DUF3800-IX RNA: a 61-nucleotide RNA.
The family's consensus secondary structure is taken from published work.
Rfam describes the family as follows. Actinobacteria, Firmicutes (1 example), Nitrospirae, Proteobacteria, Verrucomicrobia (1 example).
It is annotated as a small RNA.
[Rfam]
RNA sequence: GGCCUGAAACUGAACUGUCGCCAAUGGGCGGCUUGCCGUGAGGCUAGGUUUCGGGCCGCUC
Numbered sequence: 001g002g003c004c005u006g007a008a009a010c011u012g013a014a015c016u017g018u019c020g021c022c023a024a025u026g027g028g029c030g031g032c033u034u035g036c037c038g039u040g041a042g043g044c045u046a047g048g049u050u051u052c053g054g055g056c057c058g059c060u061c
Stems, first nucleotide, its partner, number of pairs: 001057011017032006035044003